[Rfam]
RNA sequence: GGGUGGUUAGCUCAAUUGGUUAGAGCAGAGCGCUCAUAACGCUUUGGUUGCGGGUUCGAGUCCCACACCACCUA
Numbered sequence: 001g002g003g004u005g006g007u008u009a010g011c012u013c014a015a016u017u018g019g020u021u022a023g024a025g026c027a028g029a030g031c032g033c034u035c036a037u038a039a040c041g042c043u044u045u046g047g048u049u050g051c052g053g054g055u056u057c058g059a060g061u062c063c064c065a066c067a068c069c070a071c072c073u074a
Stems, first nucleotide, its partner, number of pairs: 001073007010026004028044005050066001052064003

The record is a 74-nucleotide RNA from Puniceibacterium sediminis, which matches "tRNA" in Rfam.
The base pairs follow the family's consensus structure, which is taken from published work.
From the family's description: Transfer RNA (tRNA) molecules are approximately 80 nucleotides in length.
Taxonomically the source falls in Puniceibacterium (Bacteria, Pseudomonadati, Alphaproteobacteria, Rhodobacterales).
The family's RNA type in Rfam is transfer RNA.